Description
The family of this 60-nucleotide sequence from Nocardioides sp. Leaf285 is "msiK RNA". Taxonomically the source falls in Nocardioides (Bacteria, Bacillati, Propionibacteriales, Nocardioidaceae). The base pairs follow the family's consensus structure, which is taken from published work.

[Rfam]
RNA sequence: GACCCGAGUCACUUCACAACGGAUCGUCCGGCACGUACCUGCCGGUGAAGGGAGCUGGUC
Numbered sequence: 001g002a003c004c005c006g007a008g009u010c011a012c013u014u015c016a017c018a019a020c021g022g023a024u025c026g027u028c029c030g031g032c033a034c035g036u037a038c039c040u041g042c043c044g045g046u047g048a049a050g051g052g053a054g055c056u057g058g059u060c
Stems, first nucleotide, its partner, number of pairs: 010052001012050005028045006